[Rfam]
RNA sequence: CGGUCCGCAGUUCACCGAGUCGCUGUCGUUUCCACAUGGAAAUACGCUGAACCUGUUU
Numbered sequence: 001c002g003g004u005c006c007g008c009a010g011u012u013c014a015c016c017g018a019g020u021c022g023c024u025g026u027c028g029u030u031u032c033c034a035c036a037u038g039g040a041a042a043u044a045c046g047c048u049g050a051a052c053c054u055g056u057u058u
Base pairs, nucleotide, nucleotide: 001017002016003015004014029042030041031040032039
Dot-bracket structure: ((((.........))))...........((((......))))................